[Rfam]
RNA sequence: GCUGUAAAUGAUGACAACUGGCUCCCUCUACUGAGUCUAGUGAGGAAAUUGCCAUGUCACCAAUUCUGACUACAGC
Numbered sequence: 001g002c003u004g005u006a007a008a009u010g011a012u013g014a015c016a017a018c019u020g021g022c023u024c025c026c027u028c029u030a031c032u033g034a035g036u037c038u039a040g041u042g043a044g045g046a047a048a049u050u051g052c053c054a055u056g057u058c059a060c061c062a063a064u065u066c067u068g069a070c071u072a073c074a075g076c
Stems, first nucleotide, its partner, number of pairs: 001076006
RNA: Small nucleolar RNA SNORD100
Organism: Echinops telfairi